[Rfam]
RNA sequence: AAGUAACACUCUGUGGCAGACAAAAAGUUGUUUGACACAAUUUAAACUUGCAGACAAUAAGUAAGUCUAACCUAUUCCAGUGGUCUCUCUUAAAUGAGACCAUCUGUUAUAUAGGCUCAAACAAU
Number, nucleotide and partner (000 for none) at each position: 001a000002a000003g000004u000005a000006a000007c000008a000009c000010u045011c000012u039013g038014u037015g036016g000017c034018a033019g032020a031021c030022a029023a000024a000025a000026a000027g000028u000029u022030g021031u020032u019033u018034g017035a000036c015037a014038c013039a012040a000041u000042u000043u000044a000045a010046a000047c000048u000049u000050g000051c000052a000053g000054a000055c000056a000057a000058u000059a000060a000061g000062u000063a000064a117065g116066u115067c114068u113069a112070a000071c000072c000073u111074a110075u109076u000077c000078c106079a105080g104081u000082g000083g000084u000085c000086u099087c098088u097089c096090u000091u000092a000093a000094a000095u000096g089097a088098g087099a086100c000101c000102a000103u000104c080105u079106g078107u000108u000109a075110u074111a073112u069113a068114g067115g066116c065117u064118c000119a000120a000121a000122c000123a000124a000125u000
RNA: Small nucleolar RNA SNORA28